[Rfam]
The family of this 74-nucleotide RNA sequence from Sphingomonas cremea is "Makes More Granules Regulator RNA (mmgR)". A search with the family's covariance model found it, with a score of 41 bits. The pairing is the family consensus, mapped onto this sequence. The source organism's lineage runs through Bacteria, Pseudomonadota, Sphingomonadales, Sphingomonadaceae and Sphingomonas. Rfam describes the family as follows. SuhB later renamed mmgR (makes more granules regulator) was a putative non-coding RNA found multiple times in the Agrobacterium tumefaciens genome and related alpha-proteobacteria. Other non-coding RNAs uncovered in the same analysis include: speF, ybhL, metA, and serC.Several studies inSinorhizobium meliloti showed that suhB element is indeed a non-coding RNA:firstly it was detected on Northern blot and called Sm8RNA, secondly in an RNAseq study referred to as SmelC689.The mutant phenotype's (strain lacking the small RNA) cytoplasm contains higher content of polyhydroxybutyrate (PBH)storage granules than wild type strain. The sRNA is required to limit the PBH intracellular accumulation when the nitrogen-fixing Sinorhizobium meliloti is under condition of surplus carbon in relation to nitrogen. It has been renamed to mmgR. Further study confirmed that mmgR fine-tunes the regulation of PBH storage.Northern blot confirmed the expression of the sRNA in other rhizobia species.

RNA sequence: AUAACUCGCCUUUCGAGGCAUCCUCUCCUGAACUUCCGGCCGGGCAGCAACGUCCGGCCUUUUUUUUGGCUCGU
Number, nucleotide and partner (000 for none) at each position: 001a000002u000003a000004a000005c000006u000007c000008g019009c018010c017011u016012u000013u000014c000015g000016a011017g010018g009019c008020a000021u000022c000023c000024u000025c000026u000027c000028c000029u000030g000031a000032a000033c000034u000035u000036c000037c000038g059039g058040c057041c056042g055043g054044g053045c052046a000047g000048c000049a000050a000051c000052g045053u044054c043055c042056g041057g040058c039059c038060u000061u000062u000063u000064u000065u000066u000067u000068g000069g000070c000071u000072c000073g000074u000